[Rfam]
RNA sequence: AACGCGACAGCCGAAAAGCGAACAGAGUAGGCA
Number, nucleotide and partner (000 for none) at each position: 001a000002a000003c020004g019005c018006g000007a000008c000009a000010g032011c031012c030013g000014a000015a000016a000017a000018g005019c004020g003021a000022a000023c000024a000025g000026a000027g000028u000029a000030g012031g011032c010033a000
The record is a 33-nucleotide RNA sequence from Flavobacterium sp., which matches "DUF805b RNA" in Rfam. Its Rfam clan is "DUF805 clan". The organism belongs to Flavobacterium, within Bacteria.